Overview: Shown here is a 434-nucleotide part of an RNA from Lasiodiplodia theobromae, a member of the family "Eukaryotic large subunit ribosomal RNA". The match comes from Rfam's covariance-model search (3460 bits).
[Rfam]
RNA sequence: GGUAGUAGCAAAUACUCAAAUGAGAACUUUGAGGACUGAAGUGGGGAAAGGUUCCGUGUGAACAGCAGUUGGACACGGGUUAGUCGAUCCUAAGAGAUAGGGAAACUCCGUUUUAAAGUGCGCCUUGCGCGCCGUCCCUCGAAAGGGAAGCCGGUUAAAAUUCCGGCACCUGGAUGUGGAUUCUCCACGGCAACGUAACUGAAAGCGGAGACGUCGGCGGGGGCCCUGGGAAGAGUUCUCUUUUCUUCUUAACGGCCUGUCACCCUGAAAACGGUUUAUCCGGAGCUAGGGUUUAACGGCCGGUAGAGCCGCGCACCUUUGCGCGGUCCGGUGCGCUCCCGACGACCCUUGAAAAUCCGCUGGAAGGAAUAGCUUUCACGCCAGGUCGUACUCAUAACCGCAGCAGGUCUCCAAGGUGAAAAGCCUCUAGUUGA
Number, nucleotide and partner (000 for none) at each position: 001g000002g000003u000004a000005g000006u000007a000008g000009c000010a000011a000012a000013u000014a000015c033016u032017c031018a030019a029020a028021u000022g000023a000024g000025a000026a000027c000028u020029u019030u018031g017032a016033g015034g432035a431036c430037u429038g000039a000040a000041g000042u000043g412044g411045g410046g409047a000048a000049a392050g391051g000052u000053u000054c078055c077056g076057u075058g074059u073060g000061a000062a000063c071064a070065g000066c000067a000068g000069u000070u064071g063072g000073a059074c058075a057076c056077g055078g054079g000080u000081u000082a000083g000084u000085c388086g387087a386088u000089c146090c145091u000092a000093a000094g140095a139096g112097a111098u110099a000100g109101g108102g107103a000104a000105a000106c000107u102108c101109c100110g098111u097112u096113u000114u000115a000116a000117a000118g000119u000120g132121c131122g000123c000124c000125u000126u000127g000128c000129g000130c000131g121132c120133c000134g000135u000136c000137c000138c000139u095140c094141g000142a000143a000144a000145g090146g089147g000148a000149a000150g167151c166152c165153g164154g163155u000156u000157a000158a000159a000160a000161u000162u000163c154164c153165g152166g151167c150168a000169c000170c384171u383172g382173g381174a000175u380176g379177u378178g377179g376180a374181u000182u000183c000184u000185c000186c000187a196188c195189g194190g000191c000192a000193a000194c189195g188196u187197a000198a000199c000200u000201g000202a000203a000204a361205g360206c359207g358208g357209a356210g000211a000212c000213g346214u345215c344216g343217g000218c341219g340220g339221g338222g337223g336224c335225c000226c331227u330228g329229g249230g248231a247232a246233g245234a244235g000236u000237u000238c000239u000240c000241u000242u000243u000244u234245c233246u232247u231248c230249u229250u000251a000252a000253c302254g301255g300256c299257c298258u000259g000260u000261c000262a292263c291264c290265c289266u288267g287268a000269a000270a000271a000272c282273g281274g280275u000276u000277u000278a000279u000280c274281c273282g272283g000284a000285g000286c000287u267288a266289g265290g264291g263292u262293u000294u000295a000296a000297c000298g257299g256300c255301c254302g253303g000304u000305a000306g000307a000308g000309c326310c325311g324312c323313g322314c321315a320316c000317c000318u000319u000320u315321g314322c313323g312324c311325g310326g309327u000328c000329c228330g227331g226332u000333g000334c000335g224336c223337u222338c221339c220340c219341g218342a000343c216344g215345a214346c213347c000348c000349u000350u000351g000352a000353a000354a000355a000356u209357c208358c207359g206360c205361u204362g000363g000364a000365a000366g000367g000368a000369a000370u000371a000372g000373c000374u180375u000376u179377c178378a177379c176380g175381c173382c172383a171384g170385g000386u087387c086388g085389u000390a000391c050392u049393c000394a000395u000396a000397a000398c407399c406400g000401c000402a000403g000404c000405a000406g399407g398408u000409c046410u045411c044412c043413a000414a426415g425416g424417u423418g000419a000420a000421a000422a000423g417424c416425c415426u414427c000428u000429a037430g036431u035432u034433g000434a000
Rfam links the family to the GO terms ribosome and structural constituent of ribosome.